RNA sequence: AGCACUAUUUUUAAACCUGUUGGUGGAAUUUCCUGACUGCUGCAGGUUACGCUGUAGUGCAAAAGAAUCUCCUGGCUCUUUAGAGCACAGUUGACCUUGUGCUGUUCAGCUGAUGCUCCUCUGAAGCUGAGGAACAGAA
Number, nucleotide and partner (000 for none) at each position: 001a000002g060003c059004a058005c057006u056007a055008u054009u000010u000011u000012u000013a000014a048015a047016c046017c045018u000019g000020u000021u042022g041023g040024u039025g038026g037027a000028a000029u000030u000031u000032c000033c000034u000035g000036a000037c026038u025039g024040c023041u022042g021043c000044a000045g017046g016047u015048u014049a000050c000051g000052c000053u000054g008055u007056a006057g005058u004059g003060c002061a000062a000063a000064a000065g000066a000067a000068u134069c000070u133071c132072c131073u130074g128075g127076c126077u125078c000079u123080u000081u000082a120083g000084a000085g116086c115087a114088c112089a111090g110091u109092u000093g107094a106095c000096c000097u000098u000099g000100u000101g000102c000103u000104g000105u000106u094107c093108a000109g091110c090111u089112g088113a000114u087115g086116c085117u000118c000119c000120u082121c000122u000123g079124a000125a077126g076127c075128u074129g000130a073131g072132g071133a070134a068135c000136a000137g000138a000139a000
The record is a 139-nucleotide sequence from Heliornis fulica, which matches "Small nucleolar RNA SNORA46" in Rfam. A search with the family's covariance model found it, with a score of 94 bits. Rfam 15.1 lists 582 matches to the family in 490 species. About the family: ACA46 is a member of the H/ACA class of snoRNA that guide the sites of modification of uridines to pseudouridines.